The family of this 74-nucleotide RNA from Alligator sinensis is "Mammalian CPEB3 ribozyme". The source organism's lineage runs through Eukaryota, Euteleostomi, Tetrapoda, Alligatoridae and Alligator.
[Rfam]
Nucleotides: 074
Stems, first nucleotide, its partner, number of pairs: 015042004021074007029037001046063007
Number, partner (000 for none) and nucleotide at each position: 001000g002000g003000u004000u005000g006000c007000a008000a009000g010000u011000u012000u013000g014000a015042g016041g017040c018039c019000a020000u021074a022073g023072c024071a025070g026069a027068a028000g029037c030000u031000a032000a033000g034000g035000g036000u037029g038000a039018g040017g041016c042015c043000u044000g045000u046063c047062a048061g049060a050059u051058u052057c053000c054000a055000a056000g057052g058051a059050a060049u061048c062047u063046g064000c065000a066000a067000a068027u069026u070025c071024u072023g073022c074021u
Gene Ontology term of the family: RNA nuclease activity.